RNA sequence: CCCCCCGAAGCAGCUCUUAGGCUGGCCUCCCUGGAGGGUGCUCAUGGGGUAGAGCACUGAUCCGGGAUGCAGGGGCCGAAAGGCUCCGGUCCCGGGUCAAACUCCGAACCCAUGAGCCCCAUUGAAGGGGGGAGACGGGUUCCCCGGGGGUAAGCUUGGGGGCCGAGAGGGAAACAACCCAGACCGGGGUUAAGGCCCCAAAGUGCGGGCUAAGUGUCAAUCUAGAAGGGUGUCUCCCACCGAAGACGGCGGGACCGUAGGCCCAGCAGCAGCCAUCGGCUAAGCAACGCGUAACAGCGGACCCGCUGAGGUGGGAGGCCCCGAAGACGCACAGGGACUCAAGCCCGCCGCCGAGACCCCGGCCCACGGAUCAUUGAUCCGCGUGGGGUAGGGGGGCGUCGCCGUGGGGCGGAAGCCGGGCCGUGAGGUCCGGUGGACCCGCGGUGAAUGAGGAU
Numbered sequence: 001c002c003c004c005c006c007g008a009a010g011c012a013g014c015u016c017u018u019a020g021g022c023u024g025g026c027c028u029c030c031c032u033g034g035a036g037g038g039u040g041c042u043c044a045u046g047g048g049g050u051a052g053a054g055c056a057c058u059g060a061u062c063c064g065g066g067a068u069g070c071a072g073g074g075g076c077c078g079a080a081a082g083g084c085u086c087c088g089g090u091c092c093c094g095g096g097u098c099a100a101a102c103u104c105c106g107a108a109c110c111c112a113u114g115a116g117c118c119c120c121a122u123u124g125a126a127g128g129g130g131g132g133a134g135a136c137g138g139g140u141u142c143c144c145c146g147g148g149g150g151u152a153a154g155c156u157u158g159g160g161g162g163c164c165g166a167g168a169g170g171g172a173a174a175c176a177a178c179c180c181a182g183a184c185c186g187g188g189g190u191u192a193a194g195g196c197c198c199c200a201a202a203g204u205g206c207g208g209g210c211u212a213a214g215u216g217u218c219a220a221u222c223u224a225g226a227a228g229g230g231u232g233u234c235u236c237c238c239a240c241c242g243a244a245g246a247c248g249g250c251g252g253g254a255c256c257g258u259a260g261g262c263c264c265a266g267c268a269g270c271a272g273c274c275a276u277c278g279g280c281u282a283a284g285c286a287a288c289g290c291g292u293a294a295c296a297g298c299g300g301a302c303c304c305g306c307u308g309a310g311g312u313g314g315g316a317g318g319c320c321c322c323g324a325a326g327a328c329g330c331a332c333a334g335g336g337a338c339u340c341a342a343g344c345c346c347g348c349c350g351c352c353g354a355g356a357c358c359c360c361g362g363c364c365c366a367c368g369g370a371u372c373a374u375u376g377a378u379c380c381g382c383g384u385g386g387g388g389u390a391g392g393g394g395g396g397c398g399u400c401g402c403c404g405u406g407g408g409g410c411g412g413a414a415g416c417c418g419g420g421c422c423g424u425g426a427g428g429u430c431c432g433g434u435g436g437a438c439c440c441g442c443g444g445u446g447a448a449u450g451a452g453g454a455u
Base pairs, nucleotide, nucleotide: 001396002395003394004393005392006391011024012023013022014021015020026134027132028131029130030129031128032127036120037119038118040117041116042115043114044113045112046111047110052105053103054102059098060097061096062095063094064093065092066091067090068089072087073086074085075084076083077082138164139163141162142161143160144159145158147157148156169180170179171178184362185361186360187359188358189357190356194352195351196350203349205348206347207346208345209344210343228322229321230320232319233318234317235316236315237314238313239312240311241310249306250305251304252303253302255279256278257277260274261273262272280284285300289298290297363386364385365383367381368380369379397450399447400446401445402444403443404442405441406440407439408438415434416433417432418431419430420429421428422427
Record summary
Shown here is a 455-nucleotide part of an RNA from Caldivirga maquilingensis, a member of the family "Archaeal large subunit ribosomal RNA". The match comes from Rfam's covariance-model search (2723 bits). Its family is annotated with ribosome and structural constituent of ribosome in the Gene Ontology. Pairs were carried over by alignment from the consensus structure, which is taken from published work.